[Rfam]
RNA sequence: GGUCAGUCCUUCAGGGCAUCAUUGCUUACACAGCGAUGUGAGGCUUGAAGGGAAGACCGCCAGGGAAACACGUAGUCUCAGCAUCCUGCCUUUCGGGGGAUGAUCGCGACUGCGGUAAAUUAACUGGC
Numbered sequence: 001g002g003u004c005a006g007u008c009c010u011u012c013a014g015g016g017c018a019u020c021a022u023u024g025c026u027u028a029c030a031c032a033g034c035g036a037u038g039u040g041a042g043g044c045u046u047g048a049a050g051g052g053a054a055g056a057c058c059g060c061c062a063g064g065g066a067a068a069c070a071c072g073u074a075g076u077c078u079c080a081g082c083a084u085c086c087u088g089c090c091u092u093u094c095g096g097g098g099g100a101u102g103a104u105c106g107c108g109a110c111u112g113c114g115g116u117a118a119a120u121u122a123a124c125u126g127g128c
Stems, first nucleotide, its partner, number of pairs: 001058004009050007017040002020038007059128005071114007
RNA: Hairpin ribozyme 1 from viruses-like metatranscriptomes